The family of this 138-nucleotide sequence from Pleuronectes platessa is "Small nucleolar RNA SNORA22". The family has 31 seed sequences and 883 matches in Rfam 15.1. The base pairs follow the family's consensus structure, which was predicted with RNAfold. The match comes from Rfam's covariance-model search (85 bits). The family's RNA type in Rfam is H/ACA-box small nucleolar RNA. About the family: ACA22 is a member of the H/ACA class of snoRNA that guide the sites of modification of uridines to pseudouridines.
[Rfam]
RNA sequence: UUGCACAGCGAACACCCAGGGAUGCUAUCAUGGUUCUCCCUGGUCUUUUACGUCUGUGCUACAGUGACUCUGGUCUUUUUCCUCUGCAUUAGGAGAGUUGCAGUCUCCCCUACAUGUAUUCAGUUGAUCAGAACAAAU
Numbered sequence: 001u002u003g004c005a006c007a008g009c010g011a012a013c014a015c016c017c018a019g020g021g022a023u024g025c026u027a028u029c030a031u032g033g034u035u036c037u038c039c040c041u042g043g044u045c046u047u048u049u050a051c052g053u054c055u056g057u058g059c060u061a062c063a064g065u066g067a068c069u070c071u072g073g074u075c076u077u078u079u080u081c082c083u084c085u086g087c088a089u090u091a092g093g094a095g096a097g098u099u100g101c102a103g104u105c106u107c108c109c110c111u112a113c114a115u116g117u118a119u120u121c122a123g124u125u126g127a128u129c130a131g132a133a134c135a136a137a138u
Stems, first nucleotide, its partner, number of pairs: 003059006010053001014049001016043005022037001024034003061077001064074002084123003087116003091111003095107003